[Rfam]
Nucleotides: 155
Base pairs, nucleotide, nucleotide: 004152005151006150007149008148009147010146017053018052019051055135056134057125058124059072060071061070062069067123068122077099105121106120107119108118109117127138128137129136
Number, partner (000 for none) and nucleotide at each position: 001000a002000a003000c004152a005151g006150u007149c008148u009147u010146u011000g012000g013000g014000g015000c016000a017053g018052g019051g020000u021000g022000a023000a024000u025000g026000u027000g028000u029000c030000c031000g032000g033000c034000g035000g036000a037000u038000c039000c040000g041000g042000c043000g044000c045000a046000u047000a048000a049000u050000u051019c052018c053017c054000a055135a056134c057125c058124g059072g060071c061070g062069g063000u064000a065000c066000a067123g068122u069062c070061c071060g072059c073000g074000a075000g076000c077099c078000g079000a080000c081000a082000g083000c084000g085000c086000c087000u088000g089000g090000u091000g092000c093000g094000c095000c096000g097000a098000c099077g100000c101000a102000c103000g104000a105121u106120c107119c108118g109117g110000u111000g112000u113000g114000a115000u116000u117109c118108c119107g120106g121105a122068a123067c124058c125057g126000a127138c128137a129136g130000u131000a132000u133000a134056g135055u136129c137128u138127g139000g140000a141000u142000g143000a144000g145000a146010a147009a148008a149007g150006a151005c152004u153000u154000g155000u

Record summary
The family of this 155-nucleotide RNA sequence from Succiniclasticum ruminis is "FMN riboswitch aptamer (RFN element)". It scores 97 bits against the family's covariance model. Pairs were carried over by alignment from the consensus structure, which is taken from published work.